[Rfam]
RNA sequence: AUCAUUUUUAAAGCGCCAGAACUAAACCAUGAACGGAAAAAGUAACAAAGCAUAGGCUGUUGUUACAGGUUUAGUUGACGAGGAGGAGGUUUAUCGAAACUUCGGCGGAUGCCUCCCGGUUGUUAUCAAUCACGACCGCAAUUCCUUUUUGGUAAAACAGAGGGGUGACUCUCUGCACAAACAGAAGGAUAUGAUUGA
Numbered sequence: 001a002u003c004a005u006u007u008u009u010a011a012a013g014c015g016c017c018a019g020a021a022c023u024a025a026a027c028c029a030u031g032a033a034c035g036g037a038a039a040a041a042g043u044a045a046c047a048a049a050g051c052a053u054a055g056g057c058u059g060u061u062g063u064u065a066c067a068g069g070u071u072u073a074g075u076u077g078a079c080g081a082g083g084a085g086g087a088g089g090u091u092u093a094u095c096g097a098a099a100c101u102u103c104g105g106c107g108g109a110u111g112c113c114u115c116c117c118g119g120u121u122g123u124u125a126u127c128a129a130u131c132a133c134g135a136c137c138g139c140a141a142u143u144c145c146u147u148u149u150u151g152g153u154a155a156a157a158c159a160g161a162g163g164g165g166u167g168a169c170u171c172u173c174u175g176c177a178c179a180a181a182c183a184g185a186a187g188g189a190u191a192u193g194a195u196u197g198a
Base pairs, nucleotide, nucleotide: 020076021075022074023073024072025071026070027069028068085116086115087114088113089112094105095104096103097102117138118137119136120135121134122133143189144188145187146186147185148184149183158175159174160173161172162171163170164169
RNA: glmS glucosamine-6-phosphate activated ribozyme aptamer